[Rfam]
RNA sequence: UUGCACGAACUCUCCCGGGCUUAUCUGAAUUUUUUCGUAUGAAGAUGAAAGCCCCAAUGUUGGUGCUAAAUCCAUGCCGUUUUACGUGUUGCGGAACAGCCUUUGCUUAUCGACUGGCUCUUCUGUGUCAAAUCGGCGGCUACAUCU
Numbered sequence: 001u002u003g004c005a006c007g008a009a010c011u012c013u014c015c016c017g018g019g020c021u022u023a024u025c026u027g028a029a030u031u032u033u034u035u036c037g038u039a040u041g042a043a044g045a046u047g048a049a050a051g052c053c054c055c056a057a058u059g060u061u062g063g064u065g066c067u068a069a070a071u072c073c074a075u076g077c078c079g080u081u082u083u084a085c086g087u088g089u090u091g092c093g094g095a096a097c098a099g100c101c102u103u104u105g106c107u108u109a110u111c112g113a114c115u116g117g118c119u120c121u122u123c124u125g126u127g128u129c130a131a132a133u134c135g136g137c138g139g140c141u142a143c144a145u146c147u
Base pairs, nucleotide, nucleotide: 003066004065005064006063008061009060010059017054018053019052020051021050022048024045025044026043076140077139078138079137080136081135087130088129090127091126092125093124094123095122099118100117101116

The record is a 147-nucleotide RNA sequence from Gossypium hirsutum, which matches "small nucleolar RNA snoR134" in Rfam. By type it is an H/ACA-box small nucleolar RNA. The family has 5 seed sequences and 792 matches in Rfam 15.1. Lineage of the source: Eukaryota > Tracheophyta > Spermatophyta > eudicotyledons > Gossypium.